[Rfam]
RNA sequence: UGAAUCCGCGCGGGAGAGUCCUUGGUCACACCGGCAGCCGCCGGCGGCCCGGGCGCCGAAGGAGCAAGUCCUCCCUUGAAUCUCUCAGGCCCUAUUACCGCGCGGGCGAG
Numbered sequence: 001u002g003a004a005u006c007c008g009c010g011c012g013g014g015a016g017a018g019u020c021c022u023u024g025g026u027c028a029c030a031c032c033g034g035c036a037g038c039c040g041c042c043g044g045c046g047g048c049c050c051g052g053g054c055g056c057c058g059a060a061g062g063a064g065c066a067a068g069u070c071c072u073c074c075c076u077u078g079a080a081u082c083u084c085u086c087a088g089g090c091c092c093u094a095u096u097a098c099c100g101c102g103c104g105g106g107c108g109a110g
Stems, first nucleotide, its partner, number of pairs: 006105008020053003055090003058086002062084003068077001
RNA: Glycine riboswitch aptamer